Rfam assigns this 70-nucleotide sequence from Auanema sp. JU1783 to the family "Small nucleolar RNA sn2841". It is annotated as a C/D-box small nucleolar RNA. For this family Rfam cites "Location of 2(')-O-methyl nucleotides in 26S rRNA and methylation guide snoRNAs in Caenorhabditis elegans" (Higa et al., Biochem Biophys Res Commun, 2002). The base pairs follow the family's consensus structure, which was predicted with WAR. It scores 60 bits against the family's covariance model. NCBI's taxonomy places the organism under Eukaryota, Opisthokonta, Metazoa, Rhabditida, Auanema. Gene Ontology terms of the family: RNA processing and nucleolus.
RNA sequence: CUGCGGUGAUUAUUAACCUUACCUAAUAAGACAAAUUCACUGGUUAAAGCUACUCGUACUGGAUGAGCAG
Numbered sequence: 001c002u003g004c005g006g007u008g009a010u011u012a013u014u015a016a017c018c019u020u021a022c023c024u025a026a027u028a029a030g031a032c033a034a035a036u037u038c039a040c041u042g043g044u045u046a047a048a049g050c051u052a053c054u055c056g057u058a059c060u061g062g063a064u065g066a067g068c069a070g
Stems, first nucleotide, its partner, number of pairs: 001070004